Small Cajal body specific RNA 3: a 126-nucleotide sequence from Certhia brachydactyla. NCBI's taxonomy places the organism under Eukaryota, Gnathostomata, Tetrapoda, Saurischia, Certhia. Clan: SCARNA3 clan. By type it is a small Cajal body RNA. The family's consensus secondary structure was predicted with RNAalifold. Rfam describes the family as follows. scaRNAs are a specific class of small nuclear RNAs which localise to the Cajal bodies and guide the modification of RNA polymerase II transcribed spliceosomal RNAs U1, U2, U4, U5 and U12. A search with the family's covariance model found it, with a score of 98 bits. Its family is annotated with nucleolus, Cajal body and RNA processing in the Gene Ontology. For this family Rfam cites "Cajal body-specific small nuclear RNAs: a novel class of 2'-O-methylation and pseudouridylation guide RNAs" (Darzacq et al., EMBO J, 2002).
[Rfam]
RNA sequence: GAUGGGACCAGUCGUGGGCAAAAUACGUAUUUUUUUGUCCACUGUUGCAGUCUUCCUAAAGCAAAAUGGAGGUCUCUGUCUGCUUUAGGACAGCCAACUAAAUCAGAUCGUUCCCCUCCUUACACG
Numbered sequence: 001g002a003u004g005g006g007a008c009c010a011g012u013c014g015u016g017g018g019c020a021a022a023a024u025a026c027g028u029a030u031u032u033u034u035u036u037g038u039c040c041a042c043u044g045u046u047g048c049a050g051u052c053u054u055c056c057u058a059a060a061g062c063a064a065a066a067u068g069g070a071g072g073u074c075u076c077u078g079u080c081u082g083c084u085u086u087a088g089g090a091c092a093g094c095c096a097a098c099u100a101a102a103u104c105a106g107a108u109c110g111u112u113c114c115c116c117u118c119c120u121u122a123c124a125c126g
Stems, first nucleotide, its partner, number of pairs: 004056003009050001011048002014042006022034002068119005076110001078108003082104001084102005